Rfam assigns this 54-nucleotide sequence from Salmo salar to the family "UnaL2 LINE 3' element".
It scores 64 bits against the family's covariance model.
Gene Ontology term of the family: transposition, RNA-mediated.
Lineage of the source: Eukaryota > Opisthokonta > Teleostomi > Protacanthopterygii > Salmo.
A reference for the family is Baba et al. (2004), "Solution structure of an RNA stem-loop derived from the 3' conserved region of eel LINE UnaL2", RNA.
RNA sequence: GAAAAAAUGUACUGUAAGUCGCUCUGGAUAAGAGCGUCUGCUAAAUAUCUAAAA
Dot-bracket structure: ............((((...((((((.....))))))..))).)...........
Numbered sequence: 001g002a003a004a005a006a007a008u009g010u011a012c013u014g015u016a017a018g019u020c021g022c023u024c025u026g027g028a029u030a031a032g033a034g035c036g037u038c039u040g041c042u043a044a045a046u047a048u049c050u051a052a053a054a
Stems, first nucleotide, its partner, number of pairs: 013043001014041003020036006